A member of the RNA family "TPP riboswitch aptamer (THI element)" from Corynebacterium argentoratense, 97 nucleotides long. The base pairs follow the family's consensus structure, which is taken from published work. A search with the family's covariance model found it, with a score of 65 bits. Lineage of the source: Bacteria > Actinomycetes > Mycobacteriales > Corynebacteriaceae > Corynebacterium argentoratense.
RNA sequence: UUAAACGUCCACGGGUGCCUCCUUGGAGGCUGAGAGCCUAAACCGUCCGAACCUGAUCCGGUUAAUACCGGCGAUAGGGAGAGAGAAACCACUAUGU
Dot-bracket structure: .....(.(.(((((.((((((....))))).........)..)))).....((((..((((......))))...))))..).).)............
Numbered sequence: 001u002u003a004a005a006c007g008u009c010c011a012c013g014g015g016u017g018c019c020u021c022c023u024u025g026g027a028g029g030c031u032g033a034g035a036g037c038c039u040a041a042a043c044c045g046u047c048c049g050a051a052c053c054u055g056a057u058c059c060g061g062u063u064a065a066u067a068c069c070g071g072c073g074a075u076a077g078g079g080a081g082a083g084a085g086a087a088a089c090c091a092c093u094a095u096g097u
Stems, first nucleotide, its partner, number of pairs: 006085001008083001010081001011046004016040001017030005052078004058071004